The record is a 73-nucleotide sequence from Arcobacter nitrofigilis, which matches "tRNA" in Rfam.

[Rfam]
Nucleotides: 073
Base pairs, nucleotide, nucleotide: 001072002071003070004069005068006067007066010025011024012023027043028042029041030040031039049065050064051063052062053061
Number, partner (000 for none) and nucleotide at each position: 001072g002071g003070a004069g005068g006067u007066a008000u009000a010025g011024c012023a013000a014000a015000g016000u017000u018000g019000g020000u021000a022000a023012u024011g025010c026000c027043g028042u029041g030040g031039a032000u033000u034000g035000c036000a037000a038000a039031u040030c041029c042028a043027c044000c045000a046000u047000g048000c049065g050064u051063c052062g053061g054000u055000u056000c057000g058000a059000g060000u061053c062052c063051g064050g065049c066007u067006a068005c069004c070003u071002c072001c073000u

Background
Its family is annotated with triplet codon-amino acid adaptor activity in the Gene Ontology. The match comes from Rfam's covariance-model search (63 bits). The organism belongs to Arcobacter nitrofigilis, within Bacteria. From the family's description: Transfer RNA (tRNA) molecules are approximately 80 nucleotides in length. Their secondary structure includes four short double-helical elements and three loops (D, anti-codon, and T loops).